[Rfam]
RNA sequence: UGUUUAUGAUGAUCAAUACAGUGACUUUCGUUCUUCUGAGUUUACUGAAGCCAAACUUUCUGUUCUGAAAAUA
Numbered sequence: 001u002g003u004u005u006a007u008g009a010u011g012a013u014c015a016a017u018a019c020a021g022u023g024a025c026u027u028u029c030g031u032u033c034u035u036c037u038g039a040g041u042u043u044a045c046u047g048a049a050g051c052c053a054a055a056c057u058u059u060c061u062g063u064u065c066u067g068a069a070a071a072u073a
Stems, first nucleotide, its partner, number of pairs: 001073003004069001
The record is a 73-nucleotide RNA sequence from Muraenolepis orangiensis, which matches "Small nucleolar RNA SNORD59" in Rfam. The family has 24 seed sequences and 1,355 matches in Rfam 15.1. For this family Rfam cites "Purified box C/D snoRNPs are able to reproduce site-specific 2'-O-methylation of target RNA in vitro" (Galardi et al., Mol Cell Biol, 2002). It is annotated as a C/D-box small nucleolar RNA.